This 79-nucleotide RNA from Micromonas pusilla belongs to the Rfam family "Small nucleolar RNA SNORD24". For this family Rfam cites "U24, a novel intron-encoded small nucleolar RNA with two 12 nt long, phylogenetically conserved complementarities to 28S rRNA" (Qu et al., Nucleic Acids Res, 1995). The match comes from Rfam's covariance-model search (61 bits). Rfam classes the family as a C/D-box small nucleolar RNA. The organism belongs to Micromonas pusilla, within Eukaryota.
RNA sequence: GGCCGGUGAUGUAUUGAUAUAUUUGCUACUCUCGAGGUUCAAGCGGUGACGACACUCGAUCACCAAGAUCUCUGAGGCC
Numbered sequence: 001g002g003c004c005g006g007u008g009a010u011g012u013a014u015u016g017a018u019a020u021a022u023u024u025g026c027u028a029c030u031c032u033c034g035a036g037g038u039u040c041a042a043g044c045g046g047u048g049a050c051g052a053c054a055c056u057c058g059a060u061c062a063c064c065a066a067g068a069u070c071u072c073u074g075a076g077g078c079c
Stems, first nucleotide, its partner, number of pairs: 001079004
Dot-bracket structure: ((((.......................................................................))))